[Rfam]
Rfam assigns this 86-nucleotide RNA from Palleronia abyssalis to the family "L2-Alphaproteobacteria ribosomal protein leader". The family's RNA type in Rfam is cis-regulatory leader. The literature on the family includes a 2020 paper in BMC Microbiol by Eckert and Weinberg, "Discovery of 20 novel ribosomal leader candidates in bacteria and archaea".
RNA sequence: GGGGACCUUCGGGGCCCUUCACCAUCCGCGGUUCCGCCCCACCCGAACGGGGAUCCCGGAAUCGCCACAGAAACGGAAGACAGAAA
Numbered sequence: 001g002g003g004g005a006c007c008u009u010c011g012g013g014g015c016c017c018u019u020c021a022c023c024a025u026c027c028g029c030g031g032u033u034c035c036g037c038c039c040c041a042c043c044c045g046a047a048c049g050g051g052g053a054u055c056c057c058g059g060a061a062u063c064g065c066c067a068c069a070g071a072a073a074c075g076g077a078a079g080a081c082a083g084a085a086a
Base pairs, nucleotide, nucleotide: 001018002017003016004015006014007013008012030063031062032061033060034059035058036057